[Rfam]
RNA sequence: CAAUGAAGGAAGCAUGGUAAUGUACACAUAAAUUGAAUUGGGUAUCUAGGCCUGCCCUCUCUGAUGUCAUUCGGCUUUGAUUUUGGGGUAUGGUUCCGCAGCAAAACA
Numbered sequence: 001c002a003a004u005g006a007a008g009g010a011a012g013c014a015u016g017g018u019a020a021u022g023u024a025c026a027c028a029u030a031a032a033u034u035g036a037a038u039u040g041g042g043u044a045u046c047u048a049g050g051c052c053u054g055c056c057c058u059c060u061c062u063g064a065u066g067u068c069a070u071u072c073g074g075c076u077u078u079g080a081u082u083u084u085g086g087g088g089u090a091u092g093g094u095u096c097c098g099c100a101g102c103a104a105a106a107c108a
Stems, first nucleotide, its partner, number of pairs: 012025001014023002042091005050081001052079001054075003